[Rfam]
RNA sequence: AGUACCCCAGUGCUUACCAUACACUGUGUUCUUACACUGACUAAAGGGGAGCAGAUAAACAUGCCCUUAUACAACUGAGUCUAGGCCCUGGUCUGUAUUGUAAAUGGUGAGGCAUGG
Dot-bracket structure: .((.((((...........((....((((....))))....))..)))).))...........(((.(.........((.((((...)))).)).........).)).)........
Numbered sequence: 001a002g003u004a005c006c007c008c009a010g011u012g013c014u015u016a017c018c019a020u021a022c023a024c025u026g027u028g029u030u031c032u033u034a035c036a037c038u039g040a041c042u043a044a045a046g047g048g049g050a051g052c053a054g055a056u057a058a059a060c061a062u063g064c065c066c067u068u069a070u071a072c073a074a075c076u077g078a079g080u081c082u083a084g085g086c087c088c089u090g091g092u093c094u095g096u097a098u099u100g101u102a103a104a105u106g107g108u109g110a111g112g113c114a115u116g117g
Stems, first nucleotide, its partner, number of pairs: 002052002005049004020043002026037004064109001065107002068104001078094002081091004